[Rfam]
RNA: ASpks TB sRNA
Organism: Streptosporangium saharense
RNA sequence: CUUCAACGAACCGAGCCACAACGGCUGCUCGGCGGGCCGGUCCUCGCCGUAGACCGCGAUCAACGCCUGCGCCUC
Numbered sequence: 001c002u003u004c005a006a007c008g009a010a011c012c013g014a015g016c017c018a019c020a021a022c023g024g025c026u027g028c029u030c031g032g033c034g035g036g037c038c039g040g041u042c043c044u045c046g047c048c049g050u051a052g053a054c055c056g057c058g059a060u061c062a063a064c065g066c067c068u069g070c071g072c073c074u075c
Stems, first nucleotide, its partner, number of pairs: 014026004032070002038065002044059002047056001049054001